A member of the RNA family "mir-375 microRNA precursor family" from Tribolium castaneum, 67 nucleotides long. Rfam links the family to the GO terms RISC complex and miRNA-mediated post-transcriptional gene silencing.

[Rfam]
RNA sequence: ACUGACUUGAGCCUUGCGAAUAAUUCCUAAUUUAAAGAGCGAUUUGUUCGUGUGGCUCGAGUUAGAU
Dot-bracket structure: .((.(((((((((...((.((((.((..............)).)))).))...))))))))).))..
Background:
It is one of the family's seed sequences. The literature on the family includes a 2005 paper in Genes Dev by Chen et al., "The developmental miRNA profiles of zebrafish as determined by small RNA cloning".